[Rfam]
RNA sequence: AUGCACUUAUUGUAGGCCUACUCAGAUUCAUGUGGUGUGGCCUUGAUCUAGGGUGCAUACAGUGAUAGCUGUUUAAUCAGCAGUGGCCAGACAACCGCCGAGAUGGAUCCACAGUUGAAUGGCUCAAUUUGCUGUUUGCCUACUAAAUCCAUCUCACAAUG
Numbered sequence: 001a002u003g004c005a006c007u008u009a010u011u012g013u014a015g016g017c018c019u020a021c022u023c024a025g026a027u028u029c030a031u032g033u034g035g036u037g038u039g040g041c042c043u044u045g046a047u048c049u050a051g052g053g054u055g056c057a058u059a060c061a062g063u064g065a066u067a068g069c070u071g072u073u074u075a076a077u078c079a080g081c082a083g084u085g086g087c088c089a090g091a092c093a094a095c096c097g098c099c100g101a102g103a104u105g106g107a108u109c110c111a112c113a114g115u116u117g118a119a120u121g122g123c124u125c126a127a128u129u130u131g132c133u134g135u136u137u138g139c140c141u142a143c144u145a146a147a148u149c150c151a152u153c154u155c156a157c158a159a160u161g
Stems, first nucleotide, its partner, number of pairs: 002057005009049001012047002014044003018040004022035003100155008118137002121132001

A member of the RNA family "small nucleolar RNA snoR143" from Cephalotus follicularis, 161 nucleotides long. Pairs were carried over by alignment from the consensus structure, which was predicted with RNAalifold. It scores 94 bits against the family's covariance model. Rfam classes the family as an H/ACA-box small nucleolar RNA.